The family of this 81-nucleotide sequence from Arabidopsis lyrata is "MIR845_1 microRNA precursor family". NCBI's taxonomy places the organism under Eukaryota, Pentapetalae, rosids, malvids, Arabidopsis. On this family, see Rajagopalan et al., Genes Dev 2006: "A diverse and evolutionarily fluid set of microRNAs in Arabidopsis thaliana". Gene Ontology terms of the family: miRNA-mediated post-transcriptional gene silencing and RISC complex.
RNA sequence: GUUUCCAUCACGUCGAUUGGUGUCAGAGCCACGCCUAUGAAAAAUUUGCGCGGCUCUGAUACCAGUUGAUGCAAUGGAAAC
Numbered sequence: 001g002u003u004u005c006c007a008u009c010a011c012g013u014c015g016a017u018u019g020g021u022g023u024c025a026g027a028g029c030c031a032c033g034c035c036u037a038u039g040a041a042a043a044a045u046u047u048g049c050g051c052g053g054c055u056c057u058g059a060u061a062c063c064a065g066u067u068g069a070u071g072c073a074a075u076g077g078a079a080a081c
Stems, first nucleotide, its partner, number of pairs: 001081008011071020032050003